[Rfam]
Overview: This 66-nucleotide sequence from Aotus nancymaae belongs to the Rfam family "U7 small nuclear RNA". It scores 45 bits against the family's covariance model. NCBI's taxonomy places the organism under Eukaryota, Tetrapoda, Mammalia, Euarchontoglires, Aotus. About the family: Animal histone pre-mRNAs are spliced by a different mechanism than nuclear pre-mRNAs and self-splicing introns.
RNA sequence: UAGUGUUACAGCUCUUUUAGAAUUUGUCUAGCAAGAUGGGCGCUUUUUGGCCAGAAAAGCGCCCUG
Number, nucleotide and partner (000 for none) at each position: 001u000002a000003g000004u000005g000006u000007u000008a000009c000010a000011g000012c000013u000014c000015u000016u000017u000018u000019a000020g000021a000022a000023u000024u000025u000026g000027u000028c000029u000030a000031g000032c000033a000034a000035g000036a000037u000038g000039g063040g062041c061042g060043c059044u058045u057046u056047u055048u054049g000050g000051c000052c000053a000054g048055a047056a046057a045058a044059g043060c042061g041062c040063c039064c000065u000066g000